[Rfam]
RNA: Baculoviridae Nucleocapsid Assembly essential Element
RNA sequence: CAUUUUGUGGCGCGUAUAUUGACAAAUAUACUACAGUCGGACGUUUGUGCCGACCUAUACACUACAUUGUACCAAAAAUAUACUACACCUGCGCCAAAAUAUACUACACCUGCGCUUCAAUAUAACUACACUCUCGUAAAACGGCUUAAAAAUAUCGAAAGAUAUGGGACAAAUACACGUUUUGAAAACGCUACGAUUUC
Number, nucleotide and partner (000 for none) at each position: 001c000002a000003u000004u000005u000006u000007g000008u000009g191010g000011c000012g000013c000014g031015u030016a029017u028018a027019u026020u025021g000022a000023c000024a000025a020026a019027u018028a017029u016030a015031c014032u000033a000034c000035a000036g054037u053038c052039g051040g050041a048042c047043g000044u000045u000046u000047g042048u041049g000050c040051c039052g038053a037054c036055c000056u000057a000058u000059a000060c000061a000062c000063u000064a000065c000066a000067u000068u000069g000070u000071a000072c000073c000074a000075a000076a000077a000078a000079u000080a000081u000082a000083c000084u000085a000086c000087a000088c000089c000090u000091g000092c000093g000094c000095c000096a000097a000098a000099a000100u000101a000102u000103a000104c000105u000106a000107c000108a000109c000110c000111u000112g000113c000114g000115c000116u000117u000118c000119a000120a000121u000122a000123u000124a000125a000126c000127u000128a000129c000130a000131c000132u000133c000134u000135c179136g178137u177138a000139a000140a000141a000142c000143g000144g170145c000146u168147u167148a000149a000150a000151a000152a163153u162154a000155u160156c000157g000158a000159a000160a155161g000162a153163u152164a000165u000166g000167g147168g146169a000170c144171a000172a000173a000174u000175a000176c000177a137178c136179g135180u000181u000182u000183u000184g000185a000186a000187a000188a000189c000190g000191c009192u000193a000194c000195g000196a000197u000198u000199u000200c000